RNA sequence: UUGCCUUAAACUAAUGAGUAAGGAAAACAAAGCGAACGGUGAGAGCCGGUCGCAGCGCUAACUCAAAAAAAUGCAUUGCGCAUGAAUUUAUGGAGGGGUUUAUAGGCUGGUCGAGUUGUUGACGCUGCUUACUUUUGCAGAACUCUCUCGUGCGGGCCUCCCUU
Number, nucleotide and partner (000 for none) at each position: 001u000002u000003g000004c023005c022006u021007u020008a019009a000010a000011c000012u000013a000014a000015u000016g000017a000018g000019u008020a007021a006022g005023g004024a000025a000026a000027a000028c000029a000030a000031a000032g053033c052034g051035a050036a000037c048038g047039g046040u000041g000042a000043g000044a000045g000046c039047c038048g037049g000050u035051c034052g033053c032054a000055g081056c080057g079058c078059u000060a000061a000062c000063u000064c000065a000066a000067a000068a000069a000070a000071a000072u000073g000074c000075a000076u000077u000078g058079c057080g056081c055082a000083u000084g000085a000086a000087u000088u000089u000090a000091u000092g000093g000094a000095g164096g163097g162098g161099u000100u000101u000102a000103u000104a159105g158106g157107c156108u155109g000110g153111u000112c150113g149114a000115g147116u000117u000118g144119u000120u000121g000122a000123c000124g000125c140126u139127g138128c137129u000130u000131a000132c000133u000134u000135u000136u000137g128138c127139a126140g125141a000142a000143c000144u118145c000146u000147c115148u000149c113150g112151u000152g000153c110154g000155g108156g107157c106158c105159u104160c000161c098162c097163u096164u095
Rfam assigns this 164-nucleotide sequence from Aquilegia coerulea to the family "U12 minor spliceosomal RNA". Clan: U2 clan. It scores 84 bits against the family's covariance model. The organism belongs to Aquilegia, within Eukaryota. For this family Rfam cites "The divergent U12-type spliceosome is required for pre-mRNA splicing and is essential for development in Drosophila" (Otake et al., Mol Cell, 2002).